RNA sequence: AAUCGACUUCAGGGCGGGGUGAAAGUCCCCACCGGUGGUAGUGUUGCGGGGCGGGUGCCCUGUCAGCAGAGCCCACGAGCGCCUGGCUUGGAUGUAUCCAUGCCAGGGUCAAGCAGAUCAGGUCCAAUGCCUGAGCCGACGGUGAUAGUCCGGAUGAAAGAAGUUGAUC
Numbered sequence: 001a002a003u004c005g006a007c008u009u010c011a012g013g014g015c016g017g018g019g020u021g022a023a024a025g026u027c028c029c030c031a032c033c034g035g036u037g038g039u040a041g042u043g044u045u046g047c048g049g050g051g052c053g054g055g056u057g058c059c060c061u062g063u064c065a066g067c068a069g070a071g072c073c074c075a076c077g078a079g080c081g082c083c084u085g086g087c088u089u090g091g092a093u094g095u096a097u098c099c100a101u102g103c104c105a106g107g108g109u110c111a112a113g114c115a116g117a118u119c120a121g122g123u124c125c126a127a128u129g130c131c132u133g134a135g136c137c138g139a140c141g142g143u144g145a146u147a148g149u150c151c152g153g154a155u156g157a158a159a160g161a162a163g164u165u166g167a168u169c
Stems, first nucleotide, its partner, number of pairs: 003167008017029003031149002033138002035076004071136002079114002118134005140152003
RNA: FMN riboswitch aptamer (RFN element)
Organism: Saccharospirillum salsuginis